The record is a 34-nucleotide sequence from Imtechella halotolerans, which matches "DUF805b RNA" in Rfam. Pairs were carried over by alignment from the consensus structure, which is taken from published work. The family is grouped with related families in Rfam's "DUF805 clan".

RNA sequence: UAGGUGGAAGCUGAAAAACCUUAAAGAGUAGGCA
Numbered sequence: 001u002a003g004g005u006g007g008a009a010g011c012u013g014a015a016a017a018a019c020c021u022u023a024a025a026g027a028g029u030a031g032g033c034a
Stems, first nucleotide, its partner, number of pairs: 002021004010033003